[Rfam]
RNA sequence: AAUUGAACAGGCGAUGGAGUUCGCCGUUAACCGCCUUUGUGCUAAUGACUCCUACCAGUUU
Numbered sequence: 001a002a003u004u005g006a007a008c009a010g011g012c013g014a015u016g017g018a019g020u021u022c023g024c025c026g027u028u029a030a031c032c033g034c035c036u037u038u039g040u041g042c043u044a045a046u047g048a049c050u051c052c053u054a055c056c057a058g059u060u061u
Base pairs, nucleotide, nucleotide: 010025011024012023013022016052017051018050019049020048021047033042034041
Shown here is a 61-nucleotide RNA from Paenibacillus protaetiae, a member of the family "Fluoride riboswitch aptamer (crcB RNA motif)". It scores 59 bits against the family's covariance model.